[Rfam]
RNA sequence: UGUUGCAAAGUUAAAAACAUAGUCUGGUUGGUAGUCCAGACGCAGCCACUGGGCUGUCAGUAUCCUUCCUCCUGGAUGUCCUUAUUUUGCGAAUCGAAA
Dot-bracket structure: ...((((((((..........((((((........))))))((((((....)))))).........(((....))).......))))))))........
The record is a 99-nucleotide sequence from Schleiferilactobacillus perolens, which matches "azaaromatic riboswitch aptamer (yjdF RNA)" in Rfam.